[Rfam]
U4 spliceosomal RNA: a 145-nucleotide RNA from Raphanus sativus. Lineage of the source: Eukaryota > Tracheophyta > malvids > Brassicaceae > Raphanus. Rfam links the family to the GO terms spliceosomal tri-snRNP complex assembly and U4 snRNP.
RNA sequence: AUCUUUGCGCUUGGGGCAAUGACGCAGCUAAUGAGGUACUAACCGAGGCGCGUCUAUUGCUGGUUGAAAACUAUUUCCAAACCCCUUCAUGGGCCUGGGCUUGAUCUACGGUUCUUGAGAAUUUUUGGAAGGACUCCCUUAGGGG
Numbered sequence: 001a002u003c004u005u006u007g008c009g010c011u012u013g014g015g016g017c018a019a020u021g022a023c024g025c026a027g028c029u030a031a032u033g034a035g036g037u038a039c040u041a042a043c044c045g046a047g048g049c050g051c052g053u054c055u056a057u058u059g060c061u062g063g064u065u066g067a068a069a070a071c072u073a074u075u076u077c078c079a080a081a082c083c084c085c086u087u088c089a090u091g092g093g094c095c096u097g098g099g100c101u102u103g104a105u106c107u108a109c110g111g112u113u114c115u116u117g118a119g120a121a122u123u124u125u126u127g128g129a130a131g132g133a134c135u136c137c138c139u140u141a142g143g144g145g
Stems, first nucleotide, its partner, number of pairs: 021054005027049003035044003086119004091114005098107001
It scores 101 bits against the family's covariance model.